The family of this 82-nucleotide sequence from Pluvianellus socialis is "let-7 microRNA precursor family".

[Rfam]
RNA sequence: GCGGGCUGAGGUAGUAGAUUGUAUAGUUGGAGGGUCCCAGCCCCGUCUCGGAGAUAACUGUACAGUCUACUGUCUUCCUCGC
Number, nucleotide and partner (000 for none) at each position: 001g082002c081003g080004g079005g078006c000007u000008g076009a075010g074011g073012u072013a071014g070015u069016a068017g067018a066019u065020u064021g063022u062023a061024u060025a059026g058027u057028u000029g000030g000031a000032g044033g043034g042035u000036c000037c000038c000039a000040g000041c000042c034043c033044c032045g000046u053047c000048u000049c000050g000051g000052a000053g046054a000055u000056a000057a027058c026059u025060g024061u023062a022063c021064a020065g019066u018067c017068u016069a015070c014071u013072g012073u011074c010075u009076u008077c000078c005079u004080c003081g002082c001
A search with the family's covariance model found it, with a score of 71 bits. On this family, see Rougvie, Nat Rev Genet 2001: "Control of developmental timing in animals". From the family's description: This family represents the microRNAs (miRNA) let-7 and mir-98. let-7 was identified from a study of developmental timing in C. elegans, and was later shown to be part of a much larger class of non-coding RNAs termed miRNAs. The source organism's lineage runs through Eukaryota, Bilateria, Euteleostomi, Neoaves and Pluvianellus.